[Rfam]
RNA: Bacterial RNase P class A
RNA sequence: UGAGCUGGCUGGGCGGCCGCGUCGACGGUCCCGCACGGGGCCGUCGCCGAGGAAAGUCCGGACUCCAUAGGGCAGGGUGGUUGCUAACGGCAACCCAGGAUGACCUGCGGGACAGUGCCACAGAAAACAGACCGCCUCGCGCGCCGUGAGCUUCACGAGGCGCGGGGUAAGGGUGAAACGGUGGUGUAAGAGACCACCAGCACCCCGGGUGACCGGGGUGGCUCGGUAAACCCCACCCGGAGCAAGGCCAAGAGGCGUCGCGUCUACCCGGACGGGGCGCUGCGCAGGCGUUCGAGGACGGCCCGUCCGAGCCUGCGGGUAGGCCGCACAGAGCCCGUCGGCGACGGCGGGCCGAGAUGGAUGGCCGCCGAACGGAGCACCGUGAGGUGCCCGGGAACAGGAUCCGGCUUACAGGCCCGCUCGUCCG
Numbered sequence: 001u002g003a004g005c006u007g008g009c010u011g012g013g014c015g016g017c018c019g020c021g022u023c024g025a026c027g028g029u030c031c032c033g034c035a036c037g038g039g040g041c042c043g044u045c046g047c048c049g050a051g052g053a054a055a056g057u058c059c060g061g062a063c064u065c066c067a068u069a070g071g072g073c074a075g076g077g078u079g080g081u082u083g084c085u086a087a088c089g090g091c092a093a094c095c096c097a098g099g100a101u102g103a104c105c106u107g108c109g110g111g112a113c114a115g116u117g118c119c120a121c122a123g124a125a126a127a128c129a130g131a132c133c134g135c136c137u138c139g140c141g142c143g144c145c146g147u148g149a150g151c152u153u154c155a156c157g158a159g160g161c162g163c164g165g166g167g168u169a170a171g172g173g174u175g176a177a178a179c180g181g182u183g184g185u186g187u188a189a190g191a192g193a194c195c196a197c198c199a200g201c202a203c204c205c206c207g208g209g210u211g212a213c214c215g216g217g218g219u220g221g222c223u224c225g226g227u228a229a230a231c232c233c234c235a236c237c238c239g240g241a242g243c244a245a246g247g248c249c250a251a252g253a254g255g256c257g258u259c260g261c262g263u264c265u266a267c268c269c270g271g272a273c274g275g276g277g278c279g280c281u282g283c284g285c286a287g288g289c290g291u292u293c294g295a296g297g298a299c300g301g302c303c304c305g306u307c308c309g310a311g312c313c314u315g316c317g318g319g320u321a322g323g324c325c326g327c328a329c330a331g332a333g334c335c336c337g338u339c340g341g342c343g344a345c346g347g348c349g350g351g352c353c354g355a356g357a358u359g360g361a362u363g364g365c366c367g368c369c370g371a372a373c374g375g376a377g378c379a380c381c382g383u384g385a386g387g388u389g390c391c392c393g394g395g396a397a398c399a400g401g402a403u404c405c406g407g408c409u410u411a412c413a414g415g416c417c418c419g420c421u422c423g424u425c426c427g
Stems, first nucleotide, its partner, number of pairs: 001423005007417004011412001012369007020049002023046009054410003058407005063242004070304004075238005080094005095109001096107004110233002115231002117227003132172002134168009180198006200222001201220008246325004284316006296308004333352008